[Rfam]
RNA sequence: GGCUCCAUAGUGUAGUGGUUAGCAUGUCUGUUUUACAUGUAGAAGGACCUGGGUUUACACCCCAGGUGGAGCUA
Numbered sequence: 001g002g003c004u005c006c007a008u009a010g011u012g013u014a015g016u017g018g019u020u021a022g023c024a025u026g027u028c029u030g031u032u033u034u035a036c037a038u039g040u041a042g043a044a045g046g047a048c049c050u051g052g053g054u055u056u057a058c059a060c061c062c063c064a065g066g067u068g069g070a071g072c073u074a
Stems, first nucleotide, its partner, number of pairs: 001073007010025004027043005049066001050064004
RNA: tRNA